Shown here is a 118-nucleotide sequence from Rehaibacterium terrae, a member of the family "Xanthomonadaceae sRNA sX13". Taxonomically the source falls in Rehaibacterium (Bacteria, Gammaproteobacteria, Lysobacterales, Lysobacteraceae). The family's consensus secondary structure was predicted with CMfinder. For this family Rfam cites "Genome-wide transcriptome analysis of the plant pathogen Xanthomonas identifies sRNAs with putative virulence functions" (Schmidtke et al., Nucleic Acids Res, 2011). The match comes from Rfam's covariance-model search (67 bits). It is annotated as a small RNA.
RNA sequence: AACGCCCGUCGUUGGAUCGCUCACUCCCCUGAGUGGAUCCCGGAGGGUCGGUUUCUCCCCAGACCGGCCUUCCUCCCCCCGAACCCCGCGGGCUUCCCCUGGCCCGCGGGGUUUUUUA
Numbered sequence: 001a002a003c004g005c006c007c008g009u010c011g012u013u014g015g016a017u018c019g020c021u022c023a024c025u026c027c028c029c030u031g032a033g034u035g036g037a038u039c040c041c042g043g044a045g046g047g048u049c050g051g052u053u054u055c056u057c058c059c060c061a062g063a064c065c066g067g068c069c070u071u072c073c074u075c076c077c078c079c080c081g082a083a084c085c086c087c088g089c090g091g092g093c094u095u096c097c098c099c100u101g102g103c104c105c106g107c108g109g110g111g112u113u114u115u116u117u118a
Base pairs, nucleotide, nucleotide: 004013006011014040015039016038017037018036020033021032022031023030042073043072044071045070046069047068048067049066050065051064052063053062082113083112084111085110086109087108088107089106091104092103093102094101